Source information: The record is a 74-nucleotide sequence from Canis lupus, which matches "mir-671 microRNA precursor family" in Rfam.
RNA sequence: CAGGAAGAGGAGGAAGCCCUGGAGGGGCUGGAGGUGAUGGAUGUUUUCCUCCGGUUCUCAGGGCUCCACCUCUU
Numbered sequence: 001c002a003g004g005a006a007g008a009g010g011a012g013g014a015a016g017c018c019c020u021g022g023a024g025g026g027g028c029u030g031g032a033g034g035u036g037a038u039g040g041a042u043g044u045u046u047u048c049c050u051c052c053g054g055u056u057c058u059c060a061g062g063g064c065u066c067c068a069c070c071u072c073u074u
Stems, first nucleotide, its partner, number of pairs: 005074006012067003016064006024058011036046002
Pairs were carried over by alignment from the consensus structure, which was predicted with RNAalifold. The organism belongs to Canis lupus, within Eukaryota.